[Rfam]
RNA sequence: UGCAAUUCGGCAAACGGAUGCGACCAGCUCCUGCUGAAUCCCCCAGGACCGGAAGGUAGCAAGGGUAGGCGGUUGUAGCGGUGCGACAUUUCGUUUGCCUUUUU
Numbered sequence: 001u002g003c004a005a006u007u008c009g010g011c012a013a014a015c016g017g018a019u020g021c022g023a024c025c026a027g028c029u030c031c032u033g034c035u036g037a038a039u040c041c042c043c044c045a046g047g048a049c050c051g052g053a054a055g056g057u058a059g060c061a062a063g064g065g066u067a068g069g070c071g072g073u074u075g076u077a078g079c080g081g082u083g084c085g086a087c088a089u090u091u092c093g094u095u096u097g098c099c100u101u102u103u104u
Stems, first nucleotide, its partner, number of pairs: 009099007016091005021085002023082002
A member of the RNA family "Bacteroidales small SRP" from Marinoscillum furvescens, 104 nucleotides long. The literature on the family includes a 2020 paper in Nat Commun by Ryan et al., "A high-resolution transcriptome map identifies small RNA regulation of metabolism in the gut microbe Bacteroides thetaiotaomicron". Its family is annotated with signal recognition particle, plasma membrane targeting and SRP-dependent cotranslational protein targeting to membrane, signal sequence recognition in the Gene Ontology. Its Rfam clan is "SRP clan". A search with the family's covariance model found it, with a score of 84 bits.